Annotation
Shown here is a 101-nucleotide RNA from Paenibacillus antarcticus, a member of the family "Purine riboswitch aptamer".

[Rfam]
RNA sequence: UAAAAAUGAAUAACUUUCUCUCAUAUAAUCGCAGGGAUAUGGCCUGCAAGUUUCUACCGAACCCCAUAAAGGCUUCGACUAUGAGUAACGAUAUAUUGGUG
Dot-bracket structure: ...................((((((...(.(((((.......))))).)........((((((.......)).))))..))))))................
Numbered sequence: 001u002a003a004a005a006a007u008g009a010a011u012a013a014c015u016u017u018c019u020c021u022c023a024u025a026u027a028a029u030c031g032c033a034g035g036g037a038u039a040u041g042g043c044c045u046g047c048a049a050g051u052u053u054c055u056a057c058c059g060a061a062c063c064c065c066a067u068a069a070a071g072g073c074u075u076c077g078a079c080u081a082u083g084a085g086u087a088a089c090g091a092u093a094u095a096u097u098g099g100u101g
Stems, first nucleotide, its partner, number of pairs: 020085006029049001031047005058077004062072002